[Rfam]
RNA sequence: GGUCUUUGCCCGGAGACGGGCAUUUCCUCCCUAGACUUGGGCCACGCAUUGCGUGGCCCCUUUUUUUUGUCUGG
Dot-bracket structure: .......((((......)))).................(((((((((...)))))))))...............
RNA: Makes More Granules Regulator RNA (mmgR)